A member of the RNA family "c-di-AMP riboswitch aptamer (ydaO/yuaA leader)" from Dendrosporobacter quercicolus, 145 nucleotides long. The pairing is the family consensus, mapped onto this sequence. The organism belongs to Dendrosporobacter, within Bacteria.

RNA sequence: GUAUUAUAAAAGCCGAAUCUACCUCAGGACCGGGGGAACCAUCAUUAGGGGUGAAAUUGUUUUAACAAACUUAAGUGUUAAACACAGUAGGGGGAACCUCAACCCUAACCCGUCAGCUAACCUCGGAGGCUUUGAGAGGGGCAGC
Numbered sequence: 001g002u003a004u005u006a007u008a009a010a011a012g013c014c015g016a017a018u019c020u021a022c023c024u025c026a027g028g029a030c031c032g033g034g035g036g037a038a039c040c041a042u043c044a045u046u047a048g049g050g051g052u053g054a055a056a057u058u059g060u061u062u063u064a065a066c067a068a069a070c071u072u073a074a075g076u077g078u079u080a081a082a083c084a085c086a087g088u089a090g091g092g093g094g095a096a097c098c099u100c101a102a103c104c105c106u107a108a109c110c111c112g113u114c115a116g117c118u119a120a121c122c123u124c125g126g127a128g129g130c131u132u133u134g135a136g137a138g139g140g141g142c143a144g145c
Stems, first nucleotide, its partner, number of pairs: 011131004018029003030126006040048001049111003057087004090105003